The record is a 147-nucleotide RNA sequence from Malus domestica, which matches "small nucleolar RNA snoR134" in Rfam. A search with the family's covariance model found it, with a score of 129 bits.

RNA sequence: AUGCACGAUGCACCCCGGGCUUCUCUGAGAGUAUAUUUCACUGAAGAAGAAAGCCCCAAUGCUCGUGCUAGAACGUCGCCGUCAAGUGUUGCAGUUUAGCCUCGCUCUUCCCUACGGCUUUUCUGUGUCAAAUCGACGGCUACAUCU
Numbered sequence: 001a002u003g004c005a006c007g008a009u010g011c012a013c014c015c016c017g018g019g020c021u022u023c024u025c026u027g028a029g030a031g032u033a034u035a036u037u038u039c040a041c042u043g044a045a046g047a048a049g050a051a052a053g054c055c056c057c058a059a060u061g062c063u064c065g066u067g068c069u070a071g072a073a074c075g076u077c078g079c080c081g082u083c084a085a086g087u088g089u090u091g092c093a094g095u096u097u098a099g100c101c102u103c104g105c106u107c108u109u110c111c112c113u114a115c116g117g118c119u120u121u122u123c124u125g126u127g128u129c130a131a132a133u134c135g136a137c138g139g140c141u142a143c144a145u146c147u
Stems, first nucleotide, its partner, number of pairs: 003068006010062002017056005022050002024047003078140006087130002090127005099118003
Dot-bracket structure: ..((((((.((.....((((((((((..................))).)).)))))....)))))))).........((((((...((.(((((....(((..............)))....))))).))....)))))).......